[Rfam]
RNA sequence: GCGGCCCGUGAUAGGAAAGCUCAUAUAGCCUUGCGGAAAUGGUGCAAGGCGUUUCUACGGAGCCGCCGAAGGCUCUACUAUGGGUGCUCUGCCGGAAAAG
Numbered sequence: 001g002c003g004g005c006c007c008g009u010g011a012u013a014g015g016a017a018a019g020c021u022c023a024u025a026u027a028g029c030c031u032u033g034c035g036g037a038a039a040u041g042g043u044g045c046a047a048g049g050c051g052u053u054u055c056u057a058c059g060g061a062g063c064c065g066c067c068g069a070a071g072g073c074u075c076u077a078c079u080a081u082g083g084g085u086g087c088u089c090u091g092c093c094g095g096a097a098a099a100g
Base pairs, nucleotide, nucleotide: 019085020084021083022082023081024080025079029049030048031047032046033045034044035043059076060075061074062073063072064071
RNA: Purine riboswitch aptamer